[Rfam]
RNA sequence: AACAUGCUCCGGGGUCGGUGAAAUUCCGAGCCGGCGGUGACAGCCCGCGAACCACACGAGAGCGAUCUGGUGUGGCCGACCUGGUGGAACUCCAGGGCCGACGGUGAGAGUCCGGAUGGGAGGAAGCAUGGG
Number, nucleotide and partner (000 for none) at each position: 001a000002a000003c130004a129005u128006g127007c126008u125009c123010c122011g000012g000013g000014g000015u000016c028017g027018g026019u000020g000021a000022a000023a000024u000025u000026c018027c017028g016029a000030g111031c110032c100033g099034g048035c047036g046037g045038u000039g000040a000041c000042a000043g098044c097045c037046c036047g035048c034049g000050a000051a000052c075053c074054a073055c072056a000057c000058g000059a000060g000061a000062g000063c000064g000065a000066u000067c000068u000069g000070g000071u000072g055073u054074g053075g052076c000077c000078g000079a000080c096081c095082u094083g093084g092085u000086g000087g000088a000089a000090c000091u000092c084093c083094a082095g081096g080097g044098c043099c033100g032101a000102c114103g113104g112105u000106g000107a000108g000109a000110g031111u030112c104113c103114g102115g000116a000117u000118g000119g000120g000121a000122g010123g009124a000125a008126g007127c006128a005129u004130g003131g000132g000